Record summary:
Small nucleolar RNA SNORA31: a 134-nucleotide RNA from Sus scrofa. On this family, see Huttenhofer et al., EMBO J 2001: "RNomics: an experimental approach that identifies 201 candidates for novel, small, non-messenger RNAs in mouse". The organism belongs to Sus, within Eukaryota. A search with the family's covariance model found it, with a score of 53 bits. Rfam classes the family as an H/ACA-box small nucleolar RNA. The family's consensus secondary structure was predicted with RNAalifold. About the family: ACA31 (SNORA31) belongs to the H/ACA class of snoRNAs which are thought to guide the sites of modification of uridines to pseudouridines. ACA31 is predicted to guide the pseudouridylation of U3713 in 28S rRNA and U218 in 18S rRNA. This family includes the mouse homologue snoMBI-161.
RNA sequence: AUGCAUCUAUUUGACAGGCGUGGAGCAAUUACUGUCUGCCACUCAGGUUUCCACUAUAGAUGCAAGAAGAAAGCAUCCUUGCACGUUCUGUCUAUCUGAUUGUGGCAGCCCAGAUUGAAUGAGGGAAUACAGGG
Numbered sequence: 001a002u003g004c005a006u007c008u009a010u011u012u013g014a015c016a017g018g019c020g021u022g023g024a025g026c027a028a029u030u031a032c033u034g035u036c037u038g039c040c041a042c043u044c045a046g047g048u049u050u051c052c053a054c055u056a057u058a059g060a061u062g063c064a065a066g067a068a069g070a071a072a073g074c075a076u077c078c079u080u081g082c083a084c085g086u087u088c089u090g091u092c093u094a095u096c097u098g099a100u101u102g103u104g105g106c107a108g109c110c111c112a113g114a115u116u117g118a119a120u121g122a123g124g125g126a127a128u129a130c131a132g133g134g
Stems, first nucleotide, its partner, number of pairs: 002064007012053002016050004025039003076126005084117001087114004092108002095105002